[Rfam]
RNA sequence: CCAAUGCGGAUACCCUGGGGGUCGCUCUCCCAGGCUCUGUCAGGUGGCAGUGGGAGUGCAGGGCUCUGCCCUGUGAUGUAGUCCCUUUCCACAACAUCUGAGAUGAAGCUAGGCCCCAAGUCCGCGCCUGCAUAUUCCUACAGCUCAGAGUCCCAUGGACCGUGACUGAGGAGAUAAACCAUGCAGGAAACAGUU
Dot-bracket structure: (..(((..((((.(((.(((....)))....)))...))))..((((....((((..((((............)..)))..))))...))))..)))..)..........................(((((((..........(((...((((...)))).......))...).......)))))))........
RNA: Small nucleolar RNA SNORA73 family